[Rfam]
RNA sequence: AUGUGGAACUAUCCAAAACAGCACAGCGUGUUAAAAUAAGGCUUUGUCCGUAUUCACCUUCACAAGAAGGGUGCACCGAUUCGGUGCUUUUUUU
Numbered sequence: 001a002u003g004u005g006g007a008a009c010u011a012u013c014c015a016a017a018a019c020a021g022c023a024c025a026g027c028g029u030g031u032u033a034a035a036a037u038a039a040g041g042c043u044u045u046g047u048c049c050g051u052a053u054u055c056a057c058c059u060u061c062a063c064a065a066g067a068a069g070g071g072u073g074c075a076c077c078g079a080u081u082c083g084g085u086g087c088u089u090u091u092u093u094u
Stems, first nucleotide, its partner, number of pairs: 002035001004033002009026002012023001014021001040049002057070001059068002073087006
RNA: Trans-activating crRNA